Source information:
Rfam assigns this 83-nucleotide RNA from Bemisia tabaci to the family "mir-31 microRNA precursor family". Taxonomically the source falls in Bemisia (Eukaryota, Protostomia, Altocrustacea, Allotriocarida). A reference for the family is Aravin et al. (2003), "The small RNA profile during Drosophila melanogaster development", Dev Cell. The base pairs follow the family's consensus structure, which was predicted with RNAalifold.
RNA sequence: UAGCAUAGAGAAGGCAAGAUGUUGGCAUAGCUGACGUGCAAUUGAUAGCUCAGGUGUGUCACAUCUGGCCAACUUUUGCUAGU
Numbered sequence: 001u002a003g004c005a006u007a008g009a010g011a012a013g014g015c016a017a018g019a020u021g022u023u024g025g026c027a028u029a030g031c032u033g034a035c036g037u038g039c040a041a042u043u044g045a046u047a048g049c050u051c052a053g054g055u056g057u058g059u060c061a062c063a064u065c066u067g068g069c070c071a072a073c074u075u076u077u078g079c080u081a082g083u
Base pairs, nucleotide, nucleotide: 007076008075009074010073013070014069015068017066018065019064020063021062023061024060025059026058027057028056029055031053
It scores 56 bits against the family's covariance model.